Overview
Rfam assigns this 76-nucleotide RNA from Scophthalmus maximus to the family "Small nucleolar RNA SNORD19".
RNA sequence: UGGAAAUGAGGACAAAAAGUGCAAGUCUGGAUUUCAUUAUGAAGACUUCUAAUCCAACUCUGAUCCAAACACUAUG
Numbered sequence: 001u002g003g004a005a006a007u008g009a010g011g012a013c014a015a016a017a018a019g020u021g022c023a024a025g026u027c028u029g030g031a032u033u034u035c036a037u038u039a040u041g042a043a044g045a046c047u048u049c050u051a052a053u054c055c056a057a058c059u060c061u062g063a064u065c066c067a068a069a070c071a072c073u074a075u076g
Stems, first nucleotide, its partner, number of pairs: 001067004
NCBI's taxonomy places the organism under Eukaryota, Opisthokonta, Gnathostomata, Acanthomorphata, Scophthalmus. Rfam classes the family as a C/D-box small nucleolar RNA. The literature on the family includes a 2001 paper in EMBO J by Huttenhofer et al., "RNomics: an experimental approach that identifies 201 candidates for novel, small, non-messenger RNAs in mouse".